[Rfam]
RNA sequence: GUACACCCCAGAGGAGUGACAGCUGAGAACACAAGAGGGGCUUGGCCUUAUAAUAGGGUCAGUCCACUUGUGUGUCUCAGGUCACCCUUUGGGAUUUCC
Numbered sequence: 001g002u003a004c005a006c007c008c009c010a011g012a013g014g015a016g017u018g019a020c021a022g023c024u025g026a027g028a029a030c031a032c033a034a035g036a037g038g039g040g041c042u043u044g045g046c047c048u049u050a051u052a053a054u055a056g057g058g059u060c061a062g063u064c065c066a067c068u069u070g071u072g073u074g075u076c077u078c079a080g081g082u083c084a085c086c087c088u089u090u091g092g093g094a095u096u097u098c099c
Base pairs, nucleotide, nucleotide: 007093008092011089012088013087014086016085017084018083019082025078026077027076028075029073030072031071032070033069034068
Annotation: A member of the RNA family "MIR398 microRNA precursor family" from Morella rubra, 99 nucleotides long. The literature on the family includes a 2004 paper in Plant Cell by Sunkar and Zhu, "Novel and stress-regulated microRNAs and other small RNAs from Arabidopsis". Rfam 15.1 lists 627 matches to the family in 211 species.